[Rfam]
RNA: U2 spliceosomal RNA
RNA sequence: AUCUCUUUGCCUUUUGGCUUAGAUCAAGUGUAGUAUCUGUUCUUUUCAGUGUAACAACUGAAAUGUUCUCAUUGAGAACUUUUAAAUGUUACCUUUAUUUUUGGAAUAUGGUGAAGGAAUUGUAUUAUGGGCUUGCUCAUAAAUUCCUACACAUUGGGGUCGUUGCUCUUGCACUGCAAGCUUCUGACCCAAACCCCCU
Numbered sequence: 001a002u003c004u005c006u007u008u009g010c011c012u013u014u015u016g017g018c019u020u021a022g023a024u025c026a027a028g029u030g031u032a033g034u035a036u037c038u039g040u041u042c043u044u045u046u047c048a049g050u051g052u053a054a055c056a057a058c059u060g061a062a063a064u065g066u067u068c069u070c071a072u073u074g075a076g077a078a079c080u081u082u083u084a085a086a087u088g089u090u091a092c093c094u095u096u097a098u099u100u101u102u103g104g105a106a107u108a109u110g111g112u113g114a115a116g117g118a119a120u121u122g123u124a125u126u127a128u129g130g131g132c133u134u135g136c137u138c139a140u141a142a143a144u145u146c147c148u149a150c151a152c153a154u155u156g157g158g159g160u161c162g163u164u165g166c167u168c169u170u171g172c173a174c175u176g177c178a179a180g181c182u183u184c185u186g187a188c189c190c191a192a193a194c195c196c197c198c199u
Stems, first nucleotide, its partner, number of pairs: 004023003009018003044063006065079006111152003115148004128139004155192001157190004162184001165181003
Dot-bracket structure: ...(((..(((....)))..)))....................((((((........)))))).((((((...))))))...............................(((.((((.........((((....)))).....)))).)))..(.((((.(..(((...........)))..)..)))).).......